[Rfam]
RNA sequence: GUCAGGUGAAAGACAUGGGUAGUGAGAUUGUAACUUUCAAAGAUGAUCUUGCUACUCUGUCUCUCAUCCUGAA
Number, nucleotide and partner (000 for none) at each position: 001g000002u000003c000004a000005g000006g000007u000008g065009a064010a000011a062012g061013a060014c059015a058016u000017g057018g056019g055020u000021a053022g052023u051024g050025a049026g048027a047028u046029u045030g000031u000032a000033a000034c000035u000036u000037u000038c000039a000040a000041a000042g000043a000044u000045g029046a028047u027048c026049u025050u024051g023052c022053u021054a000055c019056u018057c017058u015059g014060u013061c012062u011063c000064u009065c008066a000067u000068c000069c000070u000071g000072a000073a000